[Rfam]
RNA sequence: UCGGAUGCAAGCGACUGGCGAAGCAAAGGCGGGAUUGACCGCCGGGAAGCGGUUCGGUUCUAUCGCGCGCCUGGGUAGAACUU
Numbered sequence: 001u002c003g004g005a006u007g008c009a010a011g012c013g014a015c016u017g018g019c020g021a022a023g024c025a026a027a028g029g030c031g032g033g034a035u036u037g038a039c040c041g042c043c044g045g046g047a048a049g050c051g052g053u054u055c056g057g058u059u060c061u062a063u064c065g066c067g068c069g070c071c072u073g074g075g076u077a078g079a080a081c082u083u
Stems, first nucleotide, its partner, number of pairs: 003055004008051001011050002015046002017071004029042004060078005